[Rfam]
RNA sequence: UAGCACUGUGAUGAUUCCUCUUCCCUAUUGGUAUGAACUGCGAGGAUGAUCGCAAAACUAAGAACAUCUAAGGGACUGAGUGCUG
Numbered sequence: 001u002a003g004c005a006c007u008g009u010g011a012u013g014a015u016u017c018c019u020c021u022u023c024c025c026u027a028u029u030g031g032u033a034u035g036a037a038c039u040g041c042g043a044g045g046a047u048g049a050u051c052g053c054a055a056a057a058c059u060a061a062g063a064a065c066a067u068c069u070a071a072g073g074g075a076c077u078g079a080g081u082g083c084u085g
Stems, first nucleotide, its partner, number of pairs: 002084005
This 85-nucleotide RNA sequence from Ceratopteris richardii belongs to the Rfam family "Small nucleolar RNA SNORD25".
It scores 48 bits against the family's covariance model.
Rfam links the family to the GO terms RNA processing and nucleolus.
The base pairs follow the family's consensus structure, which was predicted with PFOLD.
It is annotated as a C/D-box small nucleolar RNA.
The source organism's lineage runs through Eukaryota, Embryophyta, Polypodiopsida, Polypodiidae and Ceratopteris.